RNA sequence: CCCGCGACAGGACAAAAAGACCCCAUGCACCUUUACUGUAGCUUGUCAUUGGCGUUUGCAUAGGACUGUGUAGCAUAGGUGGGAGCCGUUGAGACGGGGGCGCUAGCUCUCGAGGAGGCAACAGUGAAAUACCACCCUGUGCUGUGUGAACGCCUCACCGCGGUAGGCAAACCCUAUCCGGGACCGUGGCAGGUGGGCAGUUUGACUGGGGCGGUCGCCUCCGAAAGAGUAACGGAGGCGCGCGAAGGUUGGCUCAGCGCGGUCGGUAAUCGCGCUUAUAGAGUGUAACGGCAGAAGCCAGCCUGACGGCGAGACCGACGGGUCGAGCCGAGACGAAAGUCGGCCGUAGUGAUCCGGUAGCCCGGUGUGGAUCGGCUAUCGCGCAACGGAUAAAAGGUACGCUGGGGAUAACAGGCUUAUCGCGCCCGAGAGUUCAUAUCGACGGCGCGGUUUGGCACCUCGAUGUCGGCUUGUCACAUCCUGGGGCUGGAGAAGGUCCCAAGGGUCCGGCUGUUCGCCGGUUAAAGUGGCACAUGAGCUGGGUUCAGAACGUCGUGAGACAGUUCGGUCUGUAUCCGUCGUGGGCGUU
Numbered sequence: 001c002c003c004g005c006g007a008c009a010g011g012a013c014a015a016a017a018a019g020a021c022c023c024c025a026u027g028c029a030c031c032u033u034u035a036c037u038g039u040a041g042c043u044u045g046u047c048a049u050u051g052g053c054g055u056u057u058g059c060a061u062a063g064g065a066c067u068g069u070g071u072a073g074c075a076u077a078g079g080u081g082g083g084a085g086c087c088g089u090u091g092a093g094a095c096g097g098g099g100g101c102g103c104u105a106g107c108u109c110u111c112g113a114g115g116a117g118g119c120a121a122c123a124g125u126g127a128a129a130u131a132c133c134a135c136c137c138u139g140u141g142c143u144g145u146g147u148g149a150a151c152g153c154c155u156c157a158c159c160g161c162g163g164u165a166g167g168c169a170a171a172c173c174c175u176a177u178c179c180g181g182g183a184c185c186g187u188g189g190c191a192g193g194u195g196g197g198c199a200g201u202u203u204g205a206c207u208g209g210g211g212c213g214g215u216c217g218c219c220u221c222c223g224a225a226a227g228a229g230u231a232a233c234g235g236a237g238g239c240g241c242g243c244g245a246a247g248g249u250u251g252g253c254u255c256a257g258c259g260c261g262g263u264c265g266g267u268a269a270u271c272g273c274g275c276u277u278a279u280a281g282a283g284u285g286u287a288a289c290g291g292c293a294g295a296a297g298c299c300a301g302c303c304u305g306a307c308g309g310c311g312a313g314a315c316c317g318a319c320g321g322g323u324c325g326a327g328c329c330g331a332g333a334c335g336a337a338a339g340u341c342g343g344c345c346g347u348a349g350u351g352a353u354c355c356g357g358u359a360g361c362c363c364g365g366u367g368u369g370g371a372u373c374g375g376c377u378a379u380c381g382c383g384c385a386a387c388g389g390a391u392a393a394a395a396g397g398u399a400c401g402c403u404g405g406g407g408a409u410a411a412c413a414g415g416c417u418u419a420u421c422g423c424g425c426c427c428g429a430g431a432g433u434u435c436a437u438a439u440c441g442a443c444g445g446c447g448c449g450g451u452u453u454g455g456c457a458c459c460u461c462g463a464u465g466u467c468g469g470c471u472u473g474u475c476a477c478a479u480c481c482u483g484g485g486g487c488u489g490g491a492g493a494a495g496g497u498c499c500c501a502a503g504g505g506u507c508c509g510g511c512u513g514u515u516c517g518c519c520g521g522u523u524a525a526a527g528u529g530g531c532a533c534a535u536g537a538g539c540u541g542g543g544u545u546c547a548g549a550a551c552g553u554c555g556u557g558a559g560a561c562a563g564u565u566c567g568g569u570c571u572g573u574a575u576c577c578g579u580c581g582u583g584g585g586c587g588u589u
Base pairs, nucleotide, nucleotide: 001585002584003583004582005581006580007579008578010577011576012575015571022406023405024404025403027402028401029398030397031396032395033394035201036200037199038198042193043192044191045190046189047188048187051154052153053152054151055150056149057148058147059146060145061144062143063142065140066139068137078136079135080134081133082132085119086118087117095112096111097110098109099108100107101106158181159180160179162178163177164176165175166174167173204216205215206214207213217239218238219237220236221235222234240387242344243343248302249301250300251299252298253297254282255281257275258274259273260272261271262270283292284291307330308329309328310327313324314323315322332341333340334339355381356380357379358378359377360376361375363374364373415456416455417454419453420450421449422448423447424446425445426444430440431439467542468540469539470538471537472534473531474530475529476528477527480505481504483500484499485498486497487496488495507521508520509519510518511517548566549565550564551563552561553560554559
Bacterial large subunit ribosomal RNA: a 589-nucleotide part of an RNA from Gemmatimonas aurantiaca.
The family's consensus secondary structure is taken from published work.
Its Rfam clan is "LSU clan".
The family has 102 seed sequences and 51,934 matches in Rfam 15.1.